[Rfam]
RNA sequence: CGCUAAAUUAGGAAAAACGCUUGAAACCUGUACGUUUUUUUGUUAUGCAAAAAAAUAAAUACAGACUUAAGUUGAGAGCGUUUAACUUAAGUCUUUUUUAUUAGCUUAAAAAAACUAUAUACAAGUGGUGGUAGUCCGCCACUCUAAGGGGACGCCUUUAGAAGAAGAGGCUAGGGGGUAUUCCGGUGUGGGAUACUUAGUAAUAUGCAACGCUAAUUGCAUAAGAUUGUAGGACGGAAUUUACAGUCUUGGUUUUUCAAACCUGAAACUAAGUAAGC
Numbered sequence: 001c002g003c004u005a006a007a008u009u010a011g012g013a014a015a016a017a018c019g020c021u022u023g024a025a026a027c028c029u030g031u032a033c034g035u036u037u038u039u040u041u042g043u044u045a046u047g048c049a050a051a052a053a054a055a056u057a058a059a060u061a062c063a064g065a066c067u068u069a070a071g072u073u074g075a076g077a078g079c080g081u082u083u084a085a086c087u088u089a090a091g092u093c094u095u096u097u098u099u100a101u102u103a104g105c106u107u108a109a110a111a112a113a114a115c116u117a118u119a120u121a122c123a124a125g126u127g128g129u130g131g132u133a134g135u136c137c138g139c140c141a142c143u144c145u146a147a148g149g150g151g152a153c154g155c156c157u158u159u160a161g162a163a164g165a166a167g168a169g170g171c172u173a174g175g176g177g178g179u180a181u182u183c184c185g186g187u188g189u190g191g192g193a194u195a196c197u198u199a200g201u202a203a204u205a206u207g208c209a210a211c212g213c214u215a216a217u218u219g220c221a222u223a224a225g226a227u228u229g230u231a232g233g234a235c236g237g238a239a240u241u242u243a244c245a246g247u248c249u250u251g252g253u254u255u256u257u258c259a260a261a262c263c264u265g266a267a268a269c270u271a272a273g274u275a276a277g278c
Stems, first nucleotide, its partner, number of pairs: 007217005039063001041061004046057002065081002067078002083108003088103003126141004132173005180240006194275008204223005226247006249266004254261001
Dot-bracket structure: ......{{{{{...........................(.((((.((........)))))).).((((........)).)).(((..(((..........)))..))).................[[[[..(((((.]]]]...........................)))))......[[[[[[........((((((((..(((((....}}}}}.)))))..((((((...]]]]]].)))))).((((.(......).)))).))))))))...
Record summary: A member of the RNA family "ARRPOF RNA", 278 nucleotides long. The sequence is in the family's curated seed alignment. It is annotated as a small RNA.